[Rfam]
RNA sequence: GCCAUGUGAUCUUAAAACAGUUCUGAAAAGAUUUGAAGAACAUUGACCAAUAGCAUGUUAGAGUUCUGAUGGCA
Numbered sequence: 001g002c003c004a005u006g007u008g009a010u011c012u013u014a015a016a017a018c019a020g021u022u023c024u025g026a027a028a029a030g031a032u033u034u035g036a037a038g039a040a041c042a043u044u045g046a047c048c049a050a051u052a053g054c055a056u057g058u059u060a061g062a063g064u065u066c067u068g069a070u071g072g073c074a
Stems, first nucleotide, its partner, number of pairs: 001073004

Small nucleolar RNA SNORD28: a 74-nucleotide sequence from Pelodiscus sinensis. The organism belongs to Pelodiscus, within Eukaryota. The base pairs follow the family's consensus structure, which was predicted with PFOLD. The literature on the family includes a 1996 paper in Nature by Tycowski et al., "A mammalian gene with introns instead of exons generating stable RNA products". It is annotated as a C/D-box small nucleolar RNA. The family has 20 seed sequences and 229 matches in Rfam 15.1. The match comes from Rfam's covariance-model search (54 bits).